Shown here is a 279-nucleotide part of an RNA from Verticillium dahliae, a member of the family "Eukaryotic large subunit ribosomal RNA". Rfam links the family to the GO terms structural constituent of ribosome and ribosome. Taxonomically the source falls in Verticillium dahliae (Eukaryota, saccharomyceta, Hypocreomycetidae, Glomerellales).
[Rfam]
RNA sequence: GAGUUAACCUUAUAUAUAAAUGCCUAGGUAUAAAACCCUAAUAUAGAAUAAAAGUAAACGUAAGUAAGAGCUUUAGCGUAUUACCGACUAAUCCUAAUAUCCUUAGACGGACUUAAGUAAGAGUAUAUAAGGUUAGACCCGAAAGAAGAUAAACUAUAUAUAUAUAGAGUAAAGCUAAAGGAAACUCUAAUAAAAGCUCGUAAUAGUUCUAAUAUAUAAAUCGAUUAUUAAAUAUAUAUAUAGGGGCGAAAGAUUAAUCGAAUCUUCUAAUAGCUAGUU
Numbered sequence: 001g002a003g004u005u006a007a008c009c010u011u012a013u014a015u016a017u018a019a020a021u022g023c024c025u026a027g028g029u030a031u032a033a034a035a036c037c038c039u040a041a042u043a044u045a046g047a048a049u050a051a052a053a054g055u056a057a058a059c060g061u062a063a064g065u066a067a068g069a070g071c072u073u074u075a076g077c078g079u080a081u082u083a084c085c086g087a088c089u090a091a092u093c094c095u096a097a098u099a100u101c102c103u104u105a106g107a108c109g110g111a112c113u114u115a116a117g118u119a120a121g122a123g124u125a126u127a128u129a130a131g132g133u134u135a136g137a138c139c140c141g142a143a144a145g146a147a148g149a150u151a152a153a154c155u156a157u158a159u160a161u162a163u164a165u166a167g168a169g170u171a172a173a174g175c176u177a178a179a180g181g182a183a184a185c186u187c188u189a190a191u192a193a194a195a196g197c198u199c200g201u202a203a204u205a206g207u208u209c210u211a212a213u214a215u216a217u218a219a220a221u222c223g224a225u226u227a228u229u230a231a232a233u234a235u236a237u238a239u240a241u242a243g244g245g246g247c248g249a250a251a252g253a254u255u256a257a258u259c260g261a262a263u264c265u266u267c268u269a270a271u272a273g274c275u276a277g278u279u
Stems, first nucleotide, its partner, number of pairs: 005135013020044003027037003048055002064084004070077002087118002089115003092111003098105002138277001141274001145267006154243011165231001167199004174191001176189002179186002203228004208224002212221001245255002
Dot-bracket structure: ....(((((((((((((..(((....(((.....)))....)))...((....))........((((..((....))...))))..((((((((...((....))...))).))).))....)))))))))))))..(..(...((((((...((((((((((((.((((...(.((.((....)).)).)....))))...((((.((..(........).))))))..).))))))))))).((.......))......))))))......)..)..